Rfam assigns this 110-nucleotide RNA from Rhodamnia argentea to the family "Small nucleolar RNA snoR99".
The family's RNA type in Rfam is H/ACA-box small nucleolar RNA.
A reference for the family is Marker et al. (2002), "Experimental RNomics: identification of 140 candidates for small non-messenger RNAs in the plant Arabidopsis thaliana", Curr Biol.
The source organism's lineage runs through Eukaryota, Streptophytina, Myrtaceae, Myrteae and Rhodamnia.
Gene Ontology terms of the family: RNA processing and nucleolus.
[Rfam]
RNA sequence: UUGCUUUAGGGAUGAACGAGUCCCUCACAGUGAUUGUCGUCCAUCUGCUUCACUUUGUCAGCAAGUCGUGUUCUUCAGUCAUCUGCUGAUCAUUUUAGGAUGGAAAAUCU
Numbered sequence: 001u002u003g004c005u006u007u008a009g010g011g012a013u014g015a016a017c018g019a020g021u022c023c024c025u026c027a028c029a030g031u032g033a034u035u036g037u038c039g040u041c042c043a044u045c046u047g048c049u050u051c052a053c054u055u056u057g058u059c060a061g062c063a064a065g066u067c068g069u070g071u072u073c074u075u076c077a078g079u080c081a082u083c084u085g086c087u088g089a090u091c092a093u094u095u096u097a098g099g100a101u102g103g104a105a106a107a108u109c110u
Base pairs, nucleotide, nucleotide: 040104041103042102043101044100045099057090058089059088060087061086062085063084